Shown here is a 77-nucleotide RNA from Sphingomonas sp., a member of the family "Fluoride riboswitch aptamer (crcB RNA motif)". Pairs were carried over by alignment from the consensus structure, which is taken from published work. Lineage of the source: Bacteria > Pseudomonadati > Pseudomonadota > Sphingomonadales > Sphingomonas.
RNA sequence: AUGGCACGCGGCGAUGGAUUUCCGCCGGGCCAUUUGGCCGAACCGCUCUAGCAAGAGCUGAUGAUUCCUACUUGGCG
Numbered sequence: 001a002u003g004g005c006a007c008g009c010g011g012c013g014a015u016g017g018a019u020u021u022c023c024g025c026c027g028g029g030c031c032a033u034u035u036g037g038c039c040g041a042a043c044c045g046c047u048c049u050a051g052c053a054a055g056a057g058c059u060g061a062u063g064a065u066u067c068c069u070a071c072u073u074g075g076c077g
Stems, first nucleotide, its partner, number of pairs: 010026004016068003020064002045058004